Notes
Rfam assigns this 170-nucleotide sequence from Nakaseomyces glabratus to the family "Small nucleolar RNA snR70". Gene Ontology terms of the family: RNA processing and nucleolus. The literature on the family includes a 1999 paper in Acta Biochim Pol by Filipowicz et al., "Structure and biogenesis of small nucleolar RNAs acting as guides for ribosomal RNA modification". The family's RNA type in Rfam is C/D-box small nucleolar RNA. The family's consensus secondary structure was predicted with CMfinder.

[Rfam]
RNA sequence: AAAUAUGAUGAUUAUUUUUGUCGACCGGGCGGACAUAGUUUAGUAUCUGUUGGGUGGUAGCUGUUGCAAUUUAAGUUCUCUUCUUGUGUACAAAUUUUUAAAGAGGAGGAUGGCAGUGGCAUUAUUAUCACCUGGCAGAGAAUGGAUGAUUGGUCACAAGAUAGCUGAUU
Dot-bracket structure: ......(.((.......((((.(((((........((..((.((.(((.(((((((((((((..(.........(((((((((((...............)))))))))))....).))).....)))))))))).)))..)).))))..)))))))))..)).).....
The family is grouped with related families in Rfam's "SNORD43 clan". Taxonomically the source falls in Nakaseomyces (Eukaryota, Opisthokonta, Dikarya, saccharomyceta).